[Rfam]
Record summary:
Rfam assigns this 151-nucleotide RNA from Rhododendron simsii to the family "U12 minor spliceosomal RNA". The family's RNA type in Rfam is spliceosomal small nuclear RNA. NCBI's taxonomy places the organism under Eukaryota, Streptophyta, Embryophyta, Mesangiospermae, Rhododendron.

RNA sequence: UAGCCUUAAACUAAUGAGUAAGGAAAACAAAGCGAGCCGUGAGAUCUGCUCGCCGCGCUUGACAUAAAAUUUGUUGAGCAUGAAUUUGUGGAUAGGCUUGCUGAUUGCAGACGCUGCUUACUUUGCAGAACUUGUUUGCGUGGGCCUCCCA
Number, nucleotide and partner (000 for none) at each position: 001u000002a000003g000004c023005c022006u021007u020008a019009a000010a000011c000012u000013a000014a000015u000016g000017a000018g000019u008020a007021a006022g005023g004024a000025a000026a000027a000028c000029a000030a000031a000032g053033c052034g051035a050036g049037c048038c000039g046040u000041g000042a000043g000044a000045u000046c039047u000048g037049c036050u035051c034052g033053c032054c000055g000056c000057g079058c078059u077060u076061g075062a074063c073064a000065u000066a000067a000068a000069a000070u000071u000072u000073g063074u062075u061076g060077a059078g058079c057080a000081u000082g000083a000084a000085u000086u000087u000088g000089u000090g149091g148092a147093u000094a000095g146096g145097c144098u143099u142100g141101c140102u000103g000104a000105u000106u000107g135108c134109a133110g132111a000112c000113g000114c128115u127116g126117c125118u000119u000120a000121c000122u000123u000124u000125g117126c116127a115128g114129a000130a000131c000132u110133u109134g108135u107136u000137u000138g000139c000140g101141u100142g099143g098144g097145c096146c095147u092148c091149c090150c000151a000